Rfam assigns this 72-nucleotide sequence from Strongyloides stercoralis to the family "mir-71 microRNA precursor family". The base pairs follow the family's consensus structure, which was predicted with RNAalifold. NCBI's taxonomy places the organism under Eukaryota, Opisthokonta, Tylenchina, Strongyloidoidea, Strongyloides. The match comes from Rfam's covariance-model search (64 bits). Rfam links the family to the GO terms RISC complex and miRNA-mediated post-transcriptional gene silencing.
[Rfam]
RNA sequence: CGAGGGUGAAAGACAUGGGUAGUGAGACGAUGAGUUUGAAUUCCGUAUCACUAUUCUGUUUUUCUCCUUCUU
Numbered sequence: 001c002g003a004g005g006g007u008g009a010a011a012g013a014c015a016u017g018g019g020u021a022g023u024g025a026g027a028c029g030a031u032g033a034g035u036u037u038g039a040a041u042u043c044c045g046u047a048u049c050a051c052u053a054u055u056c057u058g059u060u061u062u063u064c065u066c067c068u069u070c071u072u
Base pairs, nucleotide, nucleotide: 008064009063010062011061012060013059014058015057017056018055019054021052022051023050024049025048027046028045029044